[Rfam]
RNA sequence: UAGUUUCAUAAAGCGCCUGGACUGCAAGUCGAUGCAGUUGACGAGGAGGAGGUUCAUCGAACGUCGGCGGAUGCUCCCGGUUGUUUUGUCACAACCGAAAGUCAUUGACUGAAAACGAAGAGGUGACUCUUCGUACAAAAGCAAUGACCAUGACAGU
Numbered sequence: 001u002a003g004u005u006u007c008a009u010a011a012a013g014c015g016c017c018u019g020g021a022c023u024g025c026a027a028g029u030c031g032a033u034g035c036a037g038u039u040g041a042c043g044a045g046g047a048g049g050a051g052g053u054u055c056a057u058c059g060a061a062c063g064u065c066g067g068c069g070g071a072u073g074c075u076c077c078c079g080g081u082u083g084u085u086u087u088g089u090c091a092c093a094a095c096c097g098a099a100a101g102u103c104a105u106u107g108a109c110u111g112a113a114a115a116c117g118a119a120g121a122g123g124u125g126a127c128u129c130u131u132c133g134u135a136c137a138a139a140a141g142c143a144a145u146g147a148c149c150a151u152g153a154c155a156g157u
Base pairs, nucleotide, nucleotide: 020039021038022037023036024035025034026033048077049076050075051074057067058066059065060064078097079096080095081094082093083092102147103146104145105144106143107142116133117132118131119130120129121128122127
The record is a 157-nucleotide RNA sequence from Geomicrobium sp. JCM 19038, which matches "glmS glucosamine-6-phosphate activated ribozyme aptamer" in Rfam. The match comes from Rfam's covariance-model search (106 bits). The family's consensus secondary structure is taken from published work. Rfam describes the family as follows. This entry contains a glucosamine-6-phosphate activated ribozyme that is found in the mRNA for GlmS. GlmS is an enzyme that uses fructose-6-phosphate and glutamine to generate glucosamine-6-phosphate. NCBI's taxonomy places the organism under Bacteria, Bacillati, Bacilli, Caryophanales, Geomicrobium.